Rfam assigns this 45-nucleotide RNA from Aureibaculum marinum to the family "PreQ1 (pre queuosine) riboswitch aptamer". The family has 43 seed sequences and 873 matches in Rfam 15.1. Rfam describes the family as follows. This family is a bacterial riboswitch that binds to the metabolite preQ1, an intermediate in the biosynthesis of the modified nucleoside queuosine from GTP. One example of this riboswitch is located in the leader of the Bacillus subtilis ykvJKLM (queCDEF) operon which encodes four genes necessary for queuosine production. PreQ1 binding to the riboswitch aptamer is thought to induce premature transcription termination within the leader to down-regulate expression of these genes.

[Rfam]
RNA sequence: GGACACGUGGUUCGAAAUUCUCCCACGAUAAAAAACUAAGAAAUA
Numbered sequence: 001g002g003a004c005a006c007g008u009g010g011u012u013c014g015a016a017a018u019u020c021u022c023c024c025a026c027g028a029u030a031a032a033a034a035a036c037u038a039a040g041a042a043a044u045a
Stems, first nucleotide, its partner, number of pairs: 006027005016037001

The pairing is the family consensus, mapped onto this sequence. Taxonomically the source falls in Aureibaculum (Bacteria, Pseudomonadati, Bacteroidota, Flavobacteriaceae).